Rfam assigns this 109-nucleotide RNA sequence from Camphora micrantha to the family "Plastid-psbA-1 3UTR RNA".
On this family, see Richter et al., Plant Commun 2023: "Retrograde signaling in plants: A critical review focusing on the GUN pathway and beyond".
The base pairs follow the family's consensus structure, which was predicted with LocARNA.
About the family: Plastid psbA-1 is a non-coding RNA (ncRNA) present in plastids. It was identified in inverted repeat sequences in the 3 prime untranslate region (3UTR) of photosystem II quinone-binding protein (psbA).
RNA sequence: UCGAAGUUCCAUCUACAAAUGGAUAAUACUUUGGUAUUAGUGUAUACGAGUCGUUGAAGGAUCAAUACCAAACUUCUUGUUCUAUUAAGAAGUUUGGUAUUGAUCUAUU
Numbered sequence: 001u002c003g004a005a006g007u008u009c010c011a012u013c014u015a016c017a018a019a020u021g022g023a024u025a026a027u028a029c030u031u032u033g034g035u036a037u038u039a040g041u042g043u044a045u046a047c048g049a050g051u052c053g054u055u056g057a058a059g060g061a062u063c064a065a066u067a068c069c070a071a072a073c074u075u076c077u078u079g080u081u082c083u084a085u086u087a088a089g090a091a092g093u094u095u096g097g098u099a100u101u102g103a104u105c106u107a108u109u
Base pairs, nucleotide, nucleotide: 008023009022010021011020012019059106060105061104062103063102064101065100066099067098068097070095071094072093074091075090076089077088078087
Dot-bracket structure: .......(((((......)))))...................................((((((((((.(((.(((((........))))).))).))))))))))...